[Rfam]
RNA sequence: GUUGACAAAAAAGCGCCGGGCCACGCAGGUGACAGCUGUGAGGGUGACGAGGAGAAAAAUGAUCGAAAGAUUCGGCGGAUGUUUUUCCGGCUGAGGGCUCAGCCGCAAGCGAGGGACAAAAAACGGCAGCAAUACCGCAACAGAACCCUUCAAAGCAAGCCA
Number, nucleotide and partner (000 for none) at each position: 001g000002u000003u000004g000005a000006c000007a000008a000009a000010a000011a000012a000013g000014c000015g000016c000017c000018g000019g000020g045021c044022c043023a000024c040025g039026c038027a000028g036029g000030u000031g000032a000033c000034a000035g000036c028037u000038g026039u025040g024041a000042g000043g022044g021045u020046g000047a000048c000049g000050a000051g000052g000053a000054g087055a086056a085057a084058a083059a000060u000061g000062a000063u075064c074065g073066a072067a000068a000069g000070a000071u000072u066073c065074g064075g063076c000077g000078g000079a000080u000081g000082u000083u058084u057085u056086u055087c054088c105089g104090g103091c102092u101093g100094a000095g000096g000097g000098c000099u000100c093101a092102g091103c090104c089105g088106c000107a000108a000109g000110c000111g151112a150113g149114g148115g147116a000117c000118a000119a000120a000121a000122a000123a000124c137125g136126g135127c000128a133129g000130c000131a000132a000133u128134a000135c126136c125137g124138c000139a000140a000141c000142a000143g000144a000145a000146c000147c115148c114149u113150u112151c111152a000153a000154a000155g000156c000157a000158a000159g000160c000161c000162a000
RNA: glmS glucosamine-6-phosphate activated ribozyme aptamer
Organism: Faecalibacterium gallinarum